Description:
A member of the RNA family "Small nucleolar RNA SNORD60" from Apteryx owenii, 87 nucleotides long. A search with the family's covariance model found it, with a score of 43 bits. Its Rfam clan is "SNORD60 clan". Lineage of the source: Eukaryota > Tetrapoda > Archelosauria > Theropoda > Apteryx. By type it is a C/D-box small nucleolar RNA. The family has 22 seed sequences and 825 matches in Rfam 15.1.

RNA sequence: AGCCGGUGAUGAUCACUGACCUUCUGACACCUCGUCUGAGGGCGGCGGGCGGCCGCGGCCCCUGCUGACGCUCCGCGGCUGAGGCUC
Numbered sequence: 001a002g003c004c005g006g007u008g009a010u011g012a013u014c015a016c017u018g019a020c021c022u023u024c025u026g027a028c029a030c031c032u033c034g035u036c037u038g039a040g041g042g043c044g045g046c047g048g049g050c051g052g053c054c055g056c057g058g059c060c061c062c063u064g065c066u067g068a069c070g071c072u073c074c075g076c077g078g079c080u081g082a083g084g085c086u087c
Stems, first nucleotide, its partner, number of pairs: 001086004042056005